[Rfam]
RNA sequence: AGUUCAUCCAGAGGAUCUGAGGGACCUGGCCCUGUGACGGUCCGGCAACCUCCCCGGCGGGGAAUCCGCGGGAAAGGUGCCAAUGCCAGGAACGAUGAGGG
Numbered sequence: 001a002g003u004u005c006a007u008c009c010a011g012a013g014g015a016u017c018u019g020a021g022g023g024a025c026c027u028g029g030c031c032c033u034g035u036g037a038c039g040g041u042c043c044g045g046c047a048a049c050c051u052c053c054c055c056g057g058c059g060g061g062g063a064a065u066c067c068g069c070g071g072g073a074a075a076g077g078u079g080c081c082a083a084u085g086c087c088a089g090g091a092a093c094g095a096u097g098a099g100g101g
Base pairs, nucleotide, nucleotide: 003099004098005097006096007095008094013043014042015041016040017039021032022031023030026089027088028087029086044081045080046079047078049077050076051073052072053071054070085093